[Rfam]
RNA: TPP riboswitch aptamer (THI element)
RNA sequence: GAAUGGCUUUGGGGGUGUCCAAAAUAAGGACUGAGAUUUAUACCCUUUGAACCUGAAACAGUUGGUACUGUCGUAGGAAAAAGCGUGCGCGAUCGU
Dot-bracket structure: .....(((((((((.(((((.......))))........)..)))).....((((..((((......))))..))))..)))))............
Numbered sequence: 001g002a003a004u005g006g007c008u009u010u011g012g013g014g015g016u017g018u019c020c021a022a023a024a025u026a027a028g029g030a031c032u033g034a035g036a037u038u039u040a041u042a043c044c045c046u047u048u049g050a051a052c053c054u055g056a057a058a059c060a061g062u063u064g065g066u067a068c069u070g071u072c073g074u075a076g077g078a079a080a081a082a083g084c085g086u087g088c089g090c091g092a093u094c095g096u
Stems, first nucleotide, its partner, number of pairs: 006084005011046004016040001017031004052077004058071004